Shown here is a 318-nucleotide RNA from Ciconia maguari, a member of the family "Small Cajal body-specific RNA 7". NCBI's taxonomy places the organism under Eukaryota, Deuterostomia, Chordata, Neoaves, Ciconia.

[Rfam]
RNA sequence: UGGAAAUGAUGAAAUAGAGAUAAUUGGAUGUCUCUCUGAAUGGAGUGUGUGUGAUAAAUGGAAUUUAAACCAAAUCAGACUGCGGGUGGGGUGUGGGGAACAUGUGUGUGUGCGCAUGUAUAGAAAAGGCUUUAAACGGGGGCACUGAUAAUGCAGUGCUGAUUCCGGAGUGCAUCUGAGGCAUGUUGUUAAAUUCUGGGGUGCCACUUUACAACAUUGCCAAUGAUUAAAGCCCAAAACAAGCCCACCAAGACAAGCCUAGGCAUCCUAGAUCUCUAACAGGUUCAUUAAUGAAAGUGAUCCUGUGAUCUGAUCUGA
Numbered sequence: 001u002g003g004a005a006a007u008g009a010u011g012a013a014a015u016a017g018a019g020a021u022a023a024u025u026g027g028a029u030g031u032c033u034c035u036c037u038g039a040a041u042g043g044a045g046u047g048u049g050u051g052u053g054a055u056a057a058a059u060g061g062a063a064u065u066u067a068a069a070c071c072a073a074a075u076c077a078g079a080c081u082g083c084g085g086g087u088g089g090g091g092u093g094u095g096g097g098g099a100a101c102a103u104g105u106g107u108g109u110g111u112g113c114g115c116a117u118g119u120a121u122a123g124a125a126a127a128g129g130c131u132u133u134a135a136a137c138g139g140g141g142g143c144a145c146u147g148a149u150a151a152u153g154c155a156g157u158g159c160u161g162a163u164u165c166c167g168g169a170g171u172g173c174a175u176c177u178g179a180g181g182c183a184u185g186u187u188g189u190u191a192a193a194u195u196c197u198g199g200g201g202u203g204c205c206a207c208u209u210u211a212c213a214a215c216a217u218u219g220c221c222a223a224u225g226a227u228u229a230a231a232g233c234c235c236a237a238a239a240c241a242a243g244c245c246c247a248c249c250a251a252g253a254c255a256a257g258c259c260u261a262g263g264c265a266u267c268c269u270a271g272a273u274c275u276c277u278a279a280c281a282g283g284u285u286c287a288u289u290a291a292u293g294a295a296a297g298u299g300a301u302c303c304u305g306u307g308a309u310c311u312g313a314u315c316u317g318a
Stems, first nucleotide, its partner, number of pairs: 001317004184216006191209001194203001196201001
It scores 173 bits against the family's covariance model.